[Rfam]
RNA sequence: AGCUUUCUGAAUCCGUGCAGAGGUUUCAUCAGACUUCAACCCAUUAGCGCUGAUCGAACUUCCAAGAUAAGUGAAGUU
Numbered sequence: 001a002g003c004u005u006u007c008u009g010a011a012u013c014c015g016u017g018c019a020g021a022g023g024u025u026u027c028a029u030c031a032g033a034c035u036u037c038a039a040c041c042c043a044u045u046a047g048c049g050c051u052g053a054u055c056g057a058a059c060u061u062c063c064a065a066g067a068u069a070a071g072u073g074a075a076g077u078u
Stems, first nucleotide, its partner, number of pairs: 002077005008071001011068003016064002020061003024058003028054003
RNA: mir-3492 microRNA precursor family